Source information
The record is a 60-nucleotide sequence from Plesiomonas sp. ZOR0011, which matches "L31-Gammaproteobacteria ribosomal protein leader" in Rfam. The sequence is in the family's curated seed alignment. The source organism's lineage runs through Bacteria, Pseudomonadota, Gammaproteobacteria, Enterobacterales and Plesiomonas. The family's consensus secondary structure is taken from published work. The literature on the family includes a 2020 paper in BMC Microbiol by Eckert and Weinberg, "Discovery of 20 novel ribosomal leader candidates in bacteria and archaea". It is annotated as a cis-regulatory leader.
[Rfam]
RNA sequence: CGUGUGGUGUUUGGCUGGCAGUAGCUGAGACCAAAUAGCGACACGGCCUUUACUUGAGGU
Numbered sequence: 001c002g003u004g005u006g007g008u009g010u011u012u013g014g015c016u017g018g019c020a021g022u023a024g025c026u027g028a029g030a031c032c033a034a035a036u037a038g039c040g041a042c043a044c045g046g047c048c049u050u051u052a053c054u055u056g057a058g059g060u
Base pairs, nucleotide, nucleotide: 001045002044003043004042005041007039008038011034012033013032014031015029